Shown here is a 78-nucleotide RNA from Klebsiella sp. RIT-PI-d, a member of the family "Repression of heat shock gene expression (ROSE) element". A search with the family's covariance model found it, with a score of 70 bits.

RNA sequence: UCCGGGAACCGCGACCUGUCCAUGACGGAAGGUCAGUACCAAAAUUCUCGCUGAUUUCAGGAGCUUUUAUUAUGCGUA
Number, nucleotide and partner (000 for none) at each position: 001u000002c000003c000004g000005g000006g000007a000008a000009c000010c000011g000012c000013g034014a033015c032016c031017u030018g000019u029020c028021c027022a000023u000024g000025a000026c000027g021028g020029a019030a017031g016032g015033u014034c013035a000036g000037u000038a000039c000040c000041a000042a000043a068044a067045u000046u000047c063048u062049c061050g000051c060052u059053g058054a000055u000056u000057u000058c053059a052060g051061g049062a048063g047064c000065u000066u000067u044068u043069a000070u000071u000072a000073u000074g000075c000076g000077u000078a000
It is annotated as an RNA thermoregulator. Rfam describes the family as follows. This family represents a 5' UTR cis-regulatory element found in heat shock mRNAs and is known as the ROSE (repression of heat shock gene expression) element. Rfam links the family to the GO terms regulation of translation and response to temperature stimulus. For this family Rfam cites "A mRNA-based thermosensor controls expression of rhizobial heat shock genes" (Nocker et al., Nucleic Acids Res, 2001).